This 126-nucleotide RNA sequence from Cervus hanglu belongs to the Rfam family "Small nucleolar RNA SNORA61". The family's RNA type in Rfam is H/ACA-box small nucleolar RNA. From the family's description: ACA61 is a member of the H/ACA class of snoRNA that guide the sites of modification of uridines to pseudouridines. The family has 25 seed sequences and 881 matches in Rfam 15.1. Its family is annotated with RNA processing and nucleolus in the Gene Ontology. The organism belongs to Cervus hanglu, within Eukaryota. Pairs were carried over by alignment from the consensus structure, which was predicted with PFOLD.
RNA sequence: ACCCUCCAGUUCCCUUUCCCAUCGGAUCUAAACCCUGGUCUCGGUGGUCGUAAGAGGAGGAAUAGCAGUACUGACACUGUGCUCGUCGUGUGUGCUGUAGAGCAUGCGGGCUAGUUUCAGACAAGG
Numbered sequence: 001a002c003c004c005u006c007c008a009g010u011u012c013c014c015u016u017u018c019c020c021a022u023c024g025g026a027u028c029u030a031a032a033c034c035c036u037g038g039u040c041u042c043g044g045u046g047g048u049c050g051u052a053a054g055a056g057g058a059g060g061a062a063u064a065g066c067a068g069u070a071c072u073g074a075c076a077c078u079g080u081g082c083u084c085g086u087c088g089u090g091u092g093u094g095c096u097g098u099a100g101a102g103c104a105u106g107c108g109g110g111c112u113a114g115u116u117u118c119a120g121a122c123a124a125g126g
Stems, first nucleotide, its partner, number of pairs: 003060005019047005025040004077114003081111004089104001